[Rfam]
RNA sequence: CCGCGCAGCCGGGGAGAUAGCGGUGCCCUGUAUCUGCAAUCCGCUCCAGCAGAGGUGAUAUCCCGCCUCGGAUGCGAACUUGCAGGGCUGCCCCUGGUAAGCGGCGUUGACGUUUGGGUCUUGCGCAACAGAACCUCAUGAACCGUGUCAGGGCAGGAAUGCAGCAGCACUAAGUGAGUCAUUCUGUGUGCCGCAAGGAAGCCUGGACCGAGCUGGCUGCCAGGGUAACGCCUGUGAGCCGUAUACAAAGCGGGGUGCGCGG
Numbered sequence: 001c002c003g004c005g006c007a008g009c010c011g012g013g014g015a016g017a018u019a020g021c022g023g024u025g026c027c028c029u030g031u032a033u034c035u036g037c038a039a040u041c042c043g044c045u046c047c048a049g050c051a052g053a054g055g056u057g058a059u060a061u062c063c064c065g066c067c068u069c070g071g072a073u074g075c076g077a078a079c080u081u082g083c084a085g086g087g088c089u090g091c092c093c094c095u096g097g098u099a100a101g102c103g104g105c106g107u108u109g110a111c112g113u114u115u116g117g118g119u120c121u122u123g124c125g126c127a128a129c130a131g132a133a134c135c136u137c138a139u140g141a142a143c144c145g146u147g148u149c150a151g152g153g154c155a156g157g158a159a160u161g162c163a164g165c166a167g168c169a170c171u172a173a174g175u176g177a178g179u180c181a182u183u184c185u186g187u188g189u190g191c192c193g194c195a196a197g198g199a200a201g202c203c204u205g206g207a208c209c210g211a212g213c214u215g216g217c218u219g220c221c222a223g224g225g226u227a228a229c230g231c232c233u234g235u236g237a238g239c240c241g242u243a244u245a246c247a248a249a250g251c252g253g254g255g256u257g258c259g260c261g262g
Stems, first nucleotide, its partner, number of pairs: 001262006008056003011029004016024001018022001033053005062254005068248001070246001072244004079238008089227002093224006101217002103214003112208008120197006126188002129186005135178005145170004153162003
Rfam assigns this 262-nucleotide sequence from Clostridium sp. AM33-3 to the family "Bacterial large signal recognition particle RNA".
The match comes from Rfam's covariance-model search (196 bits).
The organism belongs to Clostridium, within Bacteria.